[Rfam]
RNA sequence: GUGUUCCCUCGAGCCGCACCGCGGAGCCACUUUCCGAGUUUAUCAAUAACUCUAAUAGCUCUGAGGAAGGUCCCUGGAUCCCUGGCAGAGAGUGUCGUAGCAUAGAUGCUGCUAGCCUCCGCCGUCAUCUCGAUUUCGGAUGGGAUGUGCGUGUGUGUGGGGGUUGUGUGUUUCCACACCACUUCCUUCCGGCGCACUGAUCUUUGAGAUGGGCGAGAGUGUAUUGGUCAAAGUAAAGUAAUGUGCGUAUCGGUCGACAUGUGUCAUCAAUCCGAUAACUCAACAGGGCCUCUUACGAGGAAACU
Numbered sequence: 001g002u003g004u005u006c007c008c009u010c011g012a013g014c015c016g017c018a019c020c021g022c023g024g025a026g027c028c029a030c031u032u033u034c035c036g037a038g039u040u041u042a043u044c045a046a047u048a049a050c051u052c053u054a055a056u057a058g059c060u061c062u063g064a065g066g067a068a069g070g071u072c073c074c075u076g077g078a079u080c081c082c083u084g085g086c087a088g089a090g091a092g093u094g095u096c097g098u099a100g101c102a103u104a105g106a107u108g109c110u111g112c113u114a115g116c117c118u119c120c121g122c123c124g125u126c127a128u129c130u131c132g133a134u135u136u137c138g139g140a141u142g143g144g145a146u147g148u149g150c151g152u153g154u155g156u157g158u159g160g161g162g163g164u165u166g167u168g169u170g171u172u173u174c175c176a177c178a179c180c181a182c183u184u185c186c187u188u189c190c191g192g193c194g195c196a197c198u199g200a201u202c203u204u205u206g207a208g209a210u211g212g213g214c215g216a217g218a219g220u221g222u223a224u225u226g227g228u229c230a231a232a233g234u235a236a237a238g239u240a241a242u243g244u245g246c247g248u249a250u251c252g253g254u255c256g257a258c259a260u261g262u263g264u265c266a267u268c269a270a271u272c273c274g275a276u277a278a279c280u281c282a283a284c285a286g287g288g289c290c291u292c293u294u295a296c297g298a299g300g301a302a303a304c305u
Stems, first nucleotide, its partner, number of pairs: 003304003007300005015247005022063006036052005068291003072288004084096004097112006114220001120215004128209004138203003147197006250275004
RNase MRP: a 305-nucleotide sequence from Fopius arisanus. The family is grouped with related families in Rfam's "RNaseP clan". Rfam classes the family as a ribozyme. Gene Ontology terms of the family: rRNA processing, ribonuclease MRP activity and ribonuclease MRP complex. NCBI's taxonomy places the organism under Eukaryota, Metazoa, Protostomia, Dicondylia, Fopius.